[Rfam]
RNA sequence: CGCACGAGUAGAAGCGUUCAGCACCGUCCCCUGUACCACAGGGGGCGGGCAGGAAAUUGCUCAGGCC
Numbered sequence: 001c002g003c004a005c006g007a008g009u010a011g012a013a014g015c016g017u018u019c020a021g022c023a024c025c026g027u028c029c030c031c032u033g034u035a036c037c038a039c040a041g042g043g044g045g046c047g048g049g050c051a052g053g054a055a056a057u058u059g060c061u062c063a064g065g066c067c
Base pairs, nucleotide, nucleotide: 006062007061008060009059010058015052018054019053021050022049024048025047026046027045028044029043030042031041032040033039034038
A member of the RNA family "Xanthine riboswitch aptamer (NMT1 RNA)" from Comamonas terrigena, 67 nucleotides long. A reference for the family is Yu and Breaker (2020), "A bacterial riboswitch class senses xanthine and uric acid to regulate genes associated with purine oxidation", RNA. It scores 48 bits against the family's covariance model.